[Rfam]
Shown here is a 350-nucleotide sequence from Roseobacter cerasinus, a member of the family "Alphaproteobacteria transfer-messenger RNA". About the family: Bacterial tmRNA, also known as 10Sa RNA or SsrA, is named for its dual tRNA and mRNA-like properties. Its role is to liberate the mRNA from a stalled ribosome. To accomplish this part of the tmRNA is used as a reading frame that ends in a translation stop signal. NCBI's taxonomy places the organism under Bacteria, Pseudomonadati, Alphaproteobacteria, Rhodobacterales, Roseobacter.

RNA sequence: GCCCUUGAGUUUUCCAACCAUUCCCCUUAUAUCUUCCAUGUUCUUCGGAACUAUGGACAUAAACGCGCUCGCAAUAAGCGGAUCGGACCCGGGGGCGGUACCCGGCGGCUCCACCAAACAUCCUUCAUUUGAGGAUCAUGGGGCCGAAACAGGAUCGACGAACGUCUAAAGGGGUUAGCUUUGUUUCGGUGAGAUACCACCGUUAUCGGUUCAAAACGUACAAUUGCAAAUGACAAUCGUGCACCAGUAGCGAUGGCCGCGUAAGCGACCGGAGAGACUGAACUCUUAAGCCCUAGCGCCUUGCAGCACUAGGCGGGGUCCGCAGGCACCUGGCAACAGAAGCCUGCACU
Numbered sequence: 001g002c003c004c005u006u007g008a009g010u011u012u013u014c015c016a017a018c019c020a021u022u023c024c025c026c027u028u029a030u031a032u033c034u035u036c037c038a039u040g041u042u043c044u045u046c047g048g049a050a051c052u053a054u055g056g057a058c059a060u061a062a063a064c065g066c067g068c069u070c071g072c073a074a075u076a077a078g079c080g081g082a083u084c085g086g087a088c089c090c091g092g093g094g095g096c097g098g099u100a101c102c103c104g105g106c107g108g109c110u111c112c113a114c115c116a117a118a119c120a121u122c123c124u125u126c127a128u129u130u131g132a133g134g135a136u137c138a139u140g141g142g143g144c145c146g147a148a149a150c151a152g153g154a155u156c157g158a159c160g161a162a163c164g165u166c167u168a169a170a171g172g173g174g175u176u177a178g179c180u181u182u183g184u185u186u187c188g189g190u191g192a193g194a195u196a197c198c199a200c201c202g203u204u205a206u207c208g209g210u211u212c213a214a215a216a217c218g219u220a221c222a223a224u225u226g227c228a229a230a231u232g233a234c235a236a237u238c239g240u241g242c243a244c245c246a247g248u249a250g251c252g253a254u255g256g257c258c259g260c261g262u263a264a265g266c267g268a269c270c271g272g273a274g275a276g277a278c279u280g281a282a283c284u285c286u287u288a289a290g291c292c293c294u295a296g297c298g299c300c301u302u303g304c305a306g307c308a309c310u311a312g313g314c315g316g317g318g319u320c321c322g323c324a325g326g327c328a329c330c331u332g333g334c335a336a337c338a339g340a341a342g343c344c345u346g347c348a349c350u
Stems, first nucleotide, its partner, number of pairs: 040051004055186005065179002067175004079164002083161003089105005106146007187202004193212002196210003316331004322347006